[Rfam]
RNA: Metazoan signal recognition particle RNA
RNA sequence: UCGGCCAGUCUUCAGCAAACUGGUGUAAGUCCCUGCUUUGGGCCGGUAUUUGGAUGAUGAAUUGCUCGAGGCUGGGAUAACGUGUACCGCGGCGACUCAGGUAUAUCGCCCAUUGGAAGCUCGGUGUUGACAUUCUGUCCUGGACGUAGGUCUGAGGCAGGAGGCCAUUAAAUAACUGACUAUCGUAGGCCAGCAAUGGAUCAACGAGAAUGUUGGUAGCACUGGGCAGUCUGGUGGAUUACGAGAAUUAGUGGGGGUUGCGAUACAUGCCAGCUUUGGGUGGAGACUCCCAUCCGUUU
Numbered sequence: 001u002c003g004g005c006c007a008g009u010c011u012u013c014a015g016c017a018a019a020c021u022g023g024u025g026u027a028a029g030u031c032c033c034u035g036c037u038u039u040g041g042g043c044c045g046g047u048a049u050u051u052g053g054a055u056g057a058u059g060a061a062u063u064g065c066u067c068g069a070g071g072c073u074g075g076g077a078u079a080a081c082g083u084g085u086a087c088c089g090c091g092g093c094g095a096c097u098c099a100g101g102u103a104u105a106u107c108g109c110c111c112a113u114u115g116g117a118a119g120c121u122c123g124g125u126g127u128u129g130a131c132a133u134u135c136u137g138u139c140c141u142g143g144a145c146g147u148a149g150g151u152c153u154g155a156g157g158c159a160g161g162a163g164g165c166c167a168u169u170a171a172a173u174a175a176c177u178g179a180c181u182a183u184c185g186u187a188g189g190c191c192a193g194c195a196a197u198g199g200a201u202c203a204a205c206g207a208g209a210a211u212g213u214u215g216g217u218a219g220c221a222c223u224g225g226g227c228a229g230u231c232u233g234g235u236g237g238a239u240u241a242c243g244a245g246a247a248u249u250a251g252u253g254g255g256g257g258u259u260g261c262g263a264u265a266c267a268u269g270c271c272a273g274c275u276u277u278g279g280g281u282g283g284a285g286a287c288u289c290c291c292a293u294c295c296g297u298u299u
Stems, first nucleotide, its partner, number of pairs: 001046003004024006011017001029043003051296006059288001062286002065283002067278009081269006088262001090260004096255004106244003110237002113234005119227009128167002131164001133162007141154005168174001175217006190199003